[Rfam]
Rfam assigns this 106-nucleotide RNA sequence from Melghiribacillus thermohalophilus to the family "TPP riboswitch aptamer (THI element)". Vitamin B(1) in its active form thiamin pyrophosphate (TPP) is an essential coenzyme that is synthesised by coupling of pyrimidine and thiazole moieties in bacteria. Lineage of the source: Bacteria > Bacillati > Bacillota > Caryophanales > Melghiribacillus.
RNA sequence: UCUUUCCACUAGGGGUGCGCUUUUGAAGCGCUGAGAGAGACACCUGUCUCAACCCUCACAACCUGAUCUAGUUCGUACUAGCGUAGGGAAGUGGAAGGGUUCGGAU
Numbered sequence: 001u002c003u004u005u006c007c008a009c010u011a012g013g014g015g016u017g018c019g020c021u022u023u024u025g026a027a028g029c030g031c032u033g034a035g036a037g038a039g040a041c042a043c044c045u046g047u048c049u050c051a052a053c054c055c056u057c058a059c060a061a062c063c064u065g066a067u068c069u070a071g072u073u074c075g076u077a078c079u080a081g082c083g084u085a086g087g088g089a090a091g092u093g094g095a096a097g098g099g100u101u102c103g104g105a106u
Base pairs, nucleotide, nucleotide: 006094007093008092009091010090011056012055013054014053017031018030019029020028021027038049039048040047041046062087063086064085065084068081069080070079071078